[Rfam]
Rfam assigns this 70-nucleotide sequence from Cnephaeus nilssonii to the family "Small nucleolar RNA U2-30". Rfam links the family to the GO terms RNA processing and nucleolus. By type it is a C/D-box small nucleolar RNA. Lineage of the source: Eukaryota > Craniata > Laurasiatheria > Chiroptera > Cnephaeus.
RNA sequence: GAGCAAUGAUGAAAAGGUUCAACUACUGACCUCUGUAAUUAUGAAGGUUUCUACACUUGACCUGAGCUAA
Numbered sequence: 001g002a003g004c005a006a007u008g009a010u011g012a013a014a015a016g017g018u019u020c021a022a023c024u025a026c027u028g029a030c031c032u033c034u035g036u037a038a039u040u041a042u043g044a045a046g047g048u049u050u051c052u053a054c055a056c057u058u059g060a061c062c063u064g065a066g067c068u069a070a
Stems, first nucleotide, its partner, number of pairs: 002068003013034001015032005